A member of the RNA family "RT-12 RNA" from Duganella sp. CF517, 111 nucleotides long. Rfam classes the family as a small RNA.
RNA sequence: UAACAUAUGCGGCUCGGCCCCUCUCGGGGUGAGAUGGUAAGAGGAUUACUUGGUUUAUCCGGAAGGGCGGUUAGUAGAGUGCCGCCAUCUGAGCCCUUCCGGUUUGCUAGC
Numbered sequence: 001u002a003a004c005a006u007a008u009g010c011g012g013c014u015c016g017g018c019c020c021c022u023c024u025c026g027g028g029g030u031g032a033g034a035u036g037g038u039a040a041g042a043g044g045a046u047u048a049c050u051u052g053g054u055u056u057a058u059c060c061g062g063a064a065g066g067g068c069g070g071u072u073a074g075u076a077g078a079g080u081g082c083c084g085c086c087a088u089c090u091g092a093g094c095c096c097u098u099c100c101g102g103u104u105u106g107c108u109a110g111c
Stems, first nucleotide, its partner, number of pairs: 009085005017030005037049004050110005059102010075091004
Dot-bracket structure: ........[[[[[...(((((....)))))......((((.....))))(((((....((((((((((......((((..]]]]]..)))).))))))))))...))))).

A search with the family's covariance model found it, with a score of 79 bits. Taxonomically the source falls in Duganella (Bacteria, Pseudomonadati, Pseudomonadota, Betaproteobacteria).